[Rfam]
RNA: MIR394 microRNA precursor family
RNA sequence: CUUACAGAGUUCUUUGGCAUUCUGUCCACCUCCUCGAUCUCCUUUUAGAUAGAAAAAAAAGAUUAAUUAGAGAAAAAAAUAUUUUCUUCGUUUUAAUUUAUGUGACGUAGUUUGAAACGAUGAGAUAAAGUGUAAAAUUAUGGAGGUGGGCAUACUGCCAACAGAUUUCUGUUGG
Numbered sequence: 001c002u003u004a005c006a007g008a009g010u011u012c013u014u015u016g017g018c019a020u021u022c023u024g025u026c027c028a029c030c031u032c033c034u035c036g037a038u039c040u041c042c043u044u045u046u047a048g049a050u051a052g053a054a055a056a057a058a059a060a061g062a063u064u065a066a067u068u069a070g071a072g073a074a075a076a077a078a079a080u081a082u083u084u085u086c087u088u089c090g091u092u093u094u095a096a097u098u099u100a101u102g103u104g105a106c107g108u109a110g111u112u113u114g115a116a117a118c119g120a121u122g123a124g125a126u127a128a129a130g131u132g133u134a135a136a137a138u139u140a141u142g143g144a145g146g147u148g149g150g151c152a153u154a155c156u157g158c159c160a161a162c163a164g165a166u167u168u169c170u171g172u173u174g175g
Base pairs, nucleotide, nucleotide: 011165014161015160016159017158018157019156023152024151025150026149027148028147029146030145031144032143033142